[Rfam]
RNA sequence: UGUAUUCCUUAUCUGUUAUCUAUUUCUAAUGGUUGUUGGAGCCUAUCUUCCGGUCAUACCCUUUGACGAACUGCAUGUUAUGACCGGAAGAUAGGCCCUGCUAUAUAUUGCCGCUAAAACUCUUGGA
Number, nucleotide and partner (000 for none) at each position: 001u000002g111003u110004a109005u000006u000007c000008c000009u000010u000011a000012u000013c000014u000015g000016u000017u000018a000019u000020c000021u000022a000023u000024u000025u100026c000027u000028a000029a000030u000031g000032g000033u000034u000035g000036u000037u000038g099039g098040a000041g096042c095043c094044u093045a092046u091047c090048u000049u000050c087051c086052g085053g084054u083055c000056a081057u080058a079059c000060c077061c000062u000063u000064u000065g000066a000067c000068g000069a000070a000071c000072u000073g000074c000075a000076u000077g060078u000079u058080a057081u056082g000083a054084c053085c052086g051087g050088a000089a000090g047091a046092u045093a044094g043095g042096c041097c000098c039099u038100g025101c000102u000103a000104u000105a000106u000107a000108u000109u004110g003111c002112c000113g000114c000115u000116a000117a000118a000119a000120c000121u000122c000123u000124u000125g000126g000127a000

Shown here is a 127-nucleotide sequence from Xenorhabdus koppenhoeferi, a member of the family "tp2". It is annotated as a small RNA. Pairs were carried over by alignment from the consensus structure, which was predicted with RNAalifold.